This 380-nucleotide part of an RNA from Cyclospora cayetanensis belongs to the Rfam family "Eukaryotic large subunit ribosomal RNA". Pairs were carried over by alignment from the consensus structure, which is taken from published work. The match comes from Rfam's covariance-model search (3210 bits).
RNA sequence: GAAUUUGAUACUGCGACAGUAAUCCAACUUAGUACGAGAGGAACAGUUGGUUCAGAUACUUGGUUAAUGCGGCUAGCUGAAAAGCUAGUGCCGCGAAGCUACCAUCUGUUGGAUUAUGACUGAACGCCUCUAAGUCAGAAUCCAUGCUGGCUAAGCAGUGUUUCUCACCGCUCCAGUUGUCACUUGCAACUACUUGUAAUGCCUUCUGGCGAUACUUCUCAGCAACGCCCUCUGCGCCACGCUCUGGGCGAGAAACGCAAUUUCCUACAUCUGGAGCGCUACAUCCAUUGCAGACGACUUUGGCGCAACCAGGUAUUGUAAGUGUGAGAGUAGGCUUGUCCUACGAUCCACUAAGAUUCAGCCUGCGUUGUCCGAUGUGU
Dot-bracket structure: ......((((((((..((((.(.((((((...............)))))).)(((((...(((....(((((((((((....))))))..)))))...)))..))))).(((....(((((...........)))))....))).)))).....)))))))).......(((((((..............................................................................................)))))))...(((((((..(.......)..))...((((.(((.((.....(((..(..(((((.....)))))..).)))....))....)))..))))...)))))..